The record is an 86-nucleotide sequence from Azomonas agilis, which matches "sRNA-Xcc1" in Rfam. A search with the family's covariance model found it, with a score of 67 bits. The family's consensus secondary structure was predicted with RNAalifold. Taxonomically the source falls in Azomonas (Bacteria, Pseudomonadati, Pseudomonadota, Pseudomonadales).
RNA sequence: GGCCGGGAGGGUGACGGAUACAACACCCGAAAGGGGAAGAAGUCCACCCGUGUUGCUCGGGUUUCGAACCUCCCGGCCACCAUAAU
Numbered sequence: 001g002g003c004c005g006g007g008a009g010g011g012u013g014a015c016g017g018a019u020a021c022a023a024c025a026c027c028c029g030a031a032a033g034g035g036g037a038a039g040a041a042g043u044c045c046a047c048c049c050g051u052g053u054u055g056c057u058c059g060g061g062u063u064u065c066g067a068a069c070c071u072c073c074c075g076g077c078c079a080c081c082a083u084a085a086u
Stems, first nucleotide, its partner, number of pairs: 001078009013044003026035003046062005